[Rfam]
RNA: SAM riboswitch aptamer (S box leader)
Organism: Membranihabitans marinus
RNA sequence: UAUUUAUAAAGAAGCGGCGAGAGACUGGCUCUGUGACCCGCUGGCAACCACAACUGAAAGGUGCCAAUUCCUGUCUUCCAUUAGAAGAGCAUAUAAAAC
Numbered sequence: 001u002a003u004u005u006a007u008a009a010a011g012a013a014g015c016g017g018c019g020a021g022a023g024a025c026u027g028g029c030u031c032u033g034u035g036a037c038c039c040g041c042u043g044g045c046a047a048c049c050a051c052a053a054c055u056g057a058a059a060g061g062u063g064c065c066a067a068u069u070c071c072u073g074u075c076u077u078c079c080a081u082u083a084g085a086a087g088a089g090c091a092u093a094u095a096a097a098a099c
Stems, first nucleotide, its partner, number of pairs: 003097006013042005021031003025073001027071002043065004048061002051056001069091001074088005